A member of the RNA family "COG3943 RNA", 99 nucleotides long. It is one of the family's seed sequences.
[Rfam]
RNA sequence: CGCGCUCCACACAGAUUAAAUUCUGAGCAUGUGGCCGUCACAAGGAUGACGUAACACCAGUAGUUAUGGACUAGGGAUAGCCGGUAACUAUAUAGGUGU
Numbered sequence: 001c002g003c004g005c006u007c008c009a010c011a012c013a014g015a016u017u018a019a020a021u022u023c024u025g026a027g028c029a030u031g032u033g034g035c036c037g038u039c040a041c042a043a044g045g046a047u048g049a050c051g052u053a054a055c056a057c058c059a060g061u062a063g064u065u066a067u068g069g070a071c072u073a074g075g076g077a078u079a080g081c082c083g084g085u086a087a088c089u090a091u092a093u094a095g096g097u098g099u
Stems, first nucleotide, its partner, number of pairs: 012025004036051005054099005060091008069081001071080002
About this RNA: It is annotated as a small RNA.